[Rfam]
Shown here is a 33-nucleotide RNA from Chryseobacterium sp. Leaf394, a member of the family "DUF805b RNA". The source organism's lineage runs through Bacteria, Pseudomonadati, Flavobacteriia, Weeksellaceae and Chryseobacterium. Its Rfam clan is "DUF805 clan". Rfam classes the family as a cis-regulatory element.
RNA sequence: AAUGCGGUAUCCGAAAAGCAGAAAGAGUAGGAA
Numbered sequence: 001a002a003u004g005c006g007g008u009a010u011c012c013g014a015a016a017a018g019c020a021g022a023a024a025g026a027g028u029a030g031g032a033a
Base pairs, nucleotide, nucleotide: 003020004019005018010032011031012030